[Rfam]
RNA sequence: GGUCCGAUGCCACGUCGAUGGUAGCAAAAUGCGAUGACCGACGAUGCUAUGAUUGGACCAAUAUACAAGUUUUAAUUAACGUUUCGCAUUUUGAUAGGAAUCUGUGUACGGAUUUCCAAUUCCUUCACGGAGCCGUUUCUUGCGAUUACAUUC
Numbered sequence: 001g002g003u004c005c006g007a008u009g010c011c012a013c014g015u016c017g018a019u020g021g022u023a024g025c026a027a028a029a030u031g032c033g034a035u036g037a038c039c040g041a042c043g044a045u046g047c048u049a050u051g052a053u054u055g056g057a058c059c060a061a062u063a064u065a066c067a068a069g070u071u072u073u074a075a076u077u078a079a080c081g082u083u084u085c086g087c088a089u090u091u092u093g094a095u096a097g098g099a100a101u102c103u104g105u106g107u108a109c110g111g112a113u114u115u116c117c118a119a120u121u122c123c124u125u126c127a128c129g130g131a132g133c134c135g136u137u138u139c140u141u142g143c144g145a146u147u148a149c150a151u152u153c
Stems, first nucleotide, its partner, number of pairs: 002058007009050001013046005020039003024032003084145005097134002102130003106126001108124001110122001
The family of this 153-nucleotide RNA sequence from Capsicum annuum is "Small nucleolar RNA snoR2/U65".
Lineage of the source: Eukaryota > Viridiplantae > Embryophyta > Tracheophyta > Capsicum.
The family is grouped with related families in Rfam's "SNORA65 clan".